The record is a 141-nucleotide RNA from Pantherophis guttatus, which matches "Small Cajal body specific RNA 3" in Rfam. Its Rfam clan is "SCARNA3 clan". It scores 89 bits against the family's covariance model. Lineage of the source: Eukaryota > Eumetazoa > Gnathostomata > Sarcopterygii > Pantherophis. By type it is a small Cajal body RNA. The family has 23 seed sequences and 642 matches in Rfam 15.1. For this family Rfam cites "Cajal body-specific small nuclear RNAs: a novel class of 2'-O-methylation and pseudouridylation guide RNAs" (Darzacq et al., EMBO J, 2002). scaRNAs are a specific class of small nuclear RNAs which localise to the Cajal bodies and guide the modification of RNA polymerase II transcribed spliceosomal RNAs U1, U2, U4, U5 and U12.
RNA sequence: ACCGGAAGCUGAACAUACCUUUCAAGCAGGCAUCUGCAGUCUCUCUCUUGCCUGUCCUGUCAGCCUUCCUAGAUUAAAAAAUGAAGGUCUCUGUCUGGAUUAGCCCAGCAAACUGAUCCAGAUCGUUCCCCUUUGCACAAA
Numbered sequence: 001a002c003c004g005g006a007a008g009c010u011g012a013a014c015a016u017a018c019c020u021u022u023c024a025a026g027c028a029g030g031c032a033u034c035u036g037c038a039g040u041c042u043c044u045c046u047c048u049u050g051c052c053u054g055u056c057c058u059g060u061c062a063g064c065c066u067u068c069c070u071a072g073a074u075u076a077a078a079a080a081a082u083g084a085a086g087g088u089c090u091c092u093g094u095c096u097g098g099a100u101u102a103g104c105c106c107a108g109c110a111a112a113c114u115g116a117u118c119c120a121g122a123u124c125g126u127u128c129c130c131c132u133u134u135g136c137a138c139a140a141a
Base pairs, nucleotide, nucleotide: 004069005068006067008064009063010062011061012060026055027054028053029052030051031050036047083134084133085132086131087130091125093123094122095121097119098118099117100116101115102114103113